[Rfam]
RNA sequence: GCUUGUCUGCGUGACUGGCGAGAACAGGAUGGGGCACCAUCAUGGAGCGCAGACACAUUCUGGCCGUUCGCCUGGGCCGCCGAU
Numbered sequence: 001g002c003u004u005g006u007c008u009g010c011g012u013g014a015c016u017g018g019c020g021a022g023a024a025c026a027g028g029a030u031g032g033g034g035c036a037c038c039a040u041c042a043u044g045g046a047g048c049g050c051a052g053a054c055a056c057a058u059u060c061u062g063g064c065c066g067u068u069c070g071c072c073u074g075g076g077c078c079g080c081c082g083a084u
Stems, first nucleotide, its partner, number of pairs: 004055009015044001017072005029040004061079005

The family of this 84-nucleotide RNA sequence from Tardiphaga robiniae is "ZMP/ZTP riboswitch aptamer (pfl RNA motif)". The family's consensus secondary structure is taken from published work. Lineage of the source: Bacteria > Pseudomonadota > Alphaproteobacteria > Hyphomicrobiales > Tardiphaga.